[Rfam]
RNA sequence: AAGCCUCAAAACAACGAAAGCCCUACCUCUCUUUCGUCCUUACGGCUCCUUGACCGCGCCAGUGUGAAUUGAAGUAGAAACGAAUUU
Numbered sequence: 001a002a003g004c005c006u007c008a009a010a011a012c013a014a015c016g017a018a019a020g021c022c023c024u025a026c027c028u029c030u031c032u033u034u035c036g037u038c039c040u041u042a043c044g045g046c047u048c049c050u051u052g053a054c055c056g057c058g059c060c061a062g063u064g065u066g067a068a069u070u071g072a073a074g075u076a077g078a079a080a081c082g083a084a085u086u087u
Stems, first nucleotide, its partner, number of pairs: 034067003039062002041058001043056003047052001
The family of this 87-nucleotide sequence from Metabacillus harenarius is "BsrC". About the family: The 301 nucleotide sequence from Kouji Nakamura has been trimmed to a highly conserved ~85 nucleotide long core to form this family. The family's consensus secondary structure was predicted with CMfinder.